[Rfam]
RNA sequence: UGCAAAAUGAUGAUCAAUAACUUUCGCCCCUAGCAGAACCAUAAUUGGAAACUUCCCAUGUUGAAUGCCAUGAUUGGUCUCACUGAUAUUGCAGCUA
Numbered sequence: 001u002g003c004a005a006a007a008u009g010a011u012g013a014u015c016a017a018u019a020a021c022u023u024u025c026g027c028c029c030c031u032a033g034c035a036g037a038a039c040c041a042u043a044a045u046u047g048g049a050a051a052c053u054u055c056c057c058a059u060g061u062u063g064a065a066u067g068c069c070a071u072g073a074u075u076g077g078u079c080u081c082a083c084u085g086a087u088a089u090u091g092c093a094g095c096u097a
Stems, first nucleotide, its partner, number of pairs: 001094001002092003

Description:
The record is a 97-nucleotide RNA from Scaptodrosophila lebanonensis, which matches "Small nucleolar RNA Me28S-Gm1083" in Rfam. The literature on the family includes a 2005 paper in RNA by Huang et al., "Genome-wide analyses of two families of snoRNA genes from Drosophila melanogaster, demonstrating the extensive utilization of introns for coding of snoRNAs". It scores 65 bits against the family's covariance model. The source organism's lineage runs through Eukaryota, Bilateria, Panorpida, Acalyptratae and Scaptodrosophila.